[Rfam]
RNA sequence: CUCGAAUCCUUGGAACCUAGGUGUGAGUGCUGUUCUGAUGCAACACACCUAUUCAAGGAUUCAAA
Numbered sequence: 001c002u003c004g005a006a007u008c009c010u011u012g013g014a015a016c017c018u019a020g021g022u023g024u025g026a027g028u029g030c031u032g033u034u035c036u037g038a039u040g041c042a043a044c045a046c047a048c049c050u051a052u053u054c055a056a057g058g059a060u061u062c063a064a065a
Stems, first nucleotide, its partner, number of pairs: 004062011018051008028042003

Notes:
A member of the RNA family "mir-362 microRNA precursor family" from Camelus dromedarius, 65 nucleotides long. The family's consensus secondary structure was predicted with RNAalifold. Rfam links the family to the GO terms RISC complex and miRNA-mediated post-transcriptional gene silencing.